[Rfam]
RNA sequence: UCGAAUUGCUCCUGUAUGUUGCUCUGGAUAAGAGCAUCUGCUAAAUGACUAAAA
Numbered sequence: 001u002c003g004a005a006u007u008g009c010u011c012c013u014g015u016a017u018g019u020u021g022c023u024c025u026g027g028a029u030a031a032g033a034g035c036a037u038c039u040g041c042u043a044a045a046u047g048a049c050u051a052a053a054a
Stems, first nucleotide, its partner, number of pairs: 013043001014041003020036006
Shown here is a 54-nucleotide RNA sequence from Oncorhynchus kisutch, a member of the family "UnaL2 LINE 3' element".
For this family Rfam cites "Solution structure of an RNA stem-loop derived from the 3' conserved region of eel LINE UnaL2" (Baba et al., RNA, 2004).
The source organism's lineage runs through Eukaryota, Bilateria, Neopterygii, Salmonidae and Oncorhynchus.
The match comes from Rfam's covariance-model search (56 bits).
About the family: The eel long interspersed element (LINE) UnaL2 and its partner short interspersed element (SINE) share a conserved 3' tail containing a stem-loop that is critical for their retrotransposition.
Rfam classes the family as a cis-regulatory element.